The family of this 70-nucleotide sequence from Acyrthosiphon pisum is "mir-3017 microRNA precursor family".
The base pairs follow the family's consensus structure, which was predicted with RNAalifold.
Gene Ontology terms of the family: RISC complex and miRNA-mediated post-transcriptional gene silencing.
The match comes from Rfam's covariance-model search (52 bits).
RNA sequence: UUGUGUUCUGUGACAGACCGGCGGGCGUCCGACAGUCCGGCGCCAGCCGAGUCAGUCACAGAACAUGGCA
Number, nucleotide and partner (000 for none) at each position: 001u068002u067003g066004u065005g064006u063007u062008c061009u060010g059011u058012g057013a056014c055015a000016g053017a052018c051019c049020g048021g047022c000023g000024g044025g043026c042027g000028u000029c000030c000031g000032a000033c000034a000035g000036u000037c000038c000039g000040g000041c000042g026043c025044c024045a000046g000047c021048c020049g019050a000051g018052u017053c016054a000055g014056u013057c012058a011059c010060a009061g008062a007063a006064c005065a004066u003067g002068g001069c000070a000